[Rfam]
RNA: Vertebrate telomerase RNA
RNA sequence: UGGGCCGGGAGGGGUGGUGGUCUUCCCUGUCUAACCCUAAGGUGAAGAGGACGUGGGUGCCGUGUUUUUCGCUCCCGCACGCUGUUUUUCUCGCUGACUUUCAGCGUGCAGAAAAGCCUUGGCCUACCGUCGGUUAUUGUCUAAUUAGAAGCAAACAAAAAAUGUCAGCGUGGCCGGGCCGCCCCUCCCGGAUACCUGCGGCGGCUCGUCCACCGGCCCCCGAGCCCCGCCUAGGCCGCGGCCGGCGCGGGGCUUCCCUGGAGGCGCCCAUGGCCGCCGCGAAGAGUUCGUCUCUGUCAGCUGCGGGUCGCCCGGGGGCCGCGGGAGAGUCCCAGGCCUUGGCCGCAGGGAGAGAAACGGAGCAGGUCCUCGCGCGGUGCACUCCCCUGAGCUGUGGGAAGUGCACCGGGACGGGCUCCUACAAGC
Numbered sequence: 001u002g003g004g005c006c007g008g009g010a011g012g013g014g015u016g017g018u019g020g021u022c023u024u025c026c027c028u029g030u031c032u033a034a035c036c037c038u039a040a041g042g043u044g045a046a047g048a049g050g051a052c053g054u055g056g057g058u059g060c061c062g063u064g065u066u067u068u069u070c071g072c073u074c075c076c077g078c079a080c081g082c083u084g085u086u087u088u089u090c091u092c093g094c095u096g097a098c099u100u101u102c103a104g105c106g107u108g109c110a111g112a113a114a115a116g117c118c119u120u121g122g123c124c125u126a127c128c129g130u131c132g133g134u135u136a137u138u139g140u141c142u143a144a145u146u147a148g149a150a151g152c153a154a155a156c157a158a159a160a161a162a163u164g165u166c167a168g169c170g171u172g173g174c175c176g177g178g179c180c181g182c183c184c185c186u187c188c189c190g191g192a193u194a195c196c197u198g199c200g201g202c203g204g205c206u207c208g209u210c211c212a213c214c215g216g217c218c219c220c221c222g223a224g225c226c227c228c229g230c231c232u233a234g235g236c237c238g239c240g241g242c243c244g245g246c247g248c249g250g251g252g253c254u255u256c257c258c259u260g261g262a263g264g265c266g267c268c269c270a271u272g273g274c275c276g277c278c279g280c281g282a283a284g285a286g287u288u289c290g291u292c293u294c295u296g297u298c299a300g301c302u303g304c305g306g307g308u309c310g311c312c313c314g315g316g317g318g319c320c321g322c323g324g325g326a327g328a329g330u331c332c333c334a335g336g337c338c339u340u341g342g343c344c345g346c347a348g349g350g351a352g353a354g355a356a357a358c359g360g361a362g363c364a365g366g367u368c369c370u371c372g373c374g375c376g377g378u379g380c381a382c383u384c385c386c387c388u389g390a391g392c393u394g395u396g397g398g399a400a401g402u403g404c405a406c407c408g409g410g411a412c413g414g415g416c417u418c419c420u421a422c423a424a425g426c
Stems, first nucleotide, its partner, number of pairs: 006191001007189011019175004064117005077109008093169006099162003195349007208331001210329001211327001213324002217318006226307005237281005243276004249269003283295004360418004366412005377406005385398003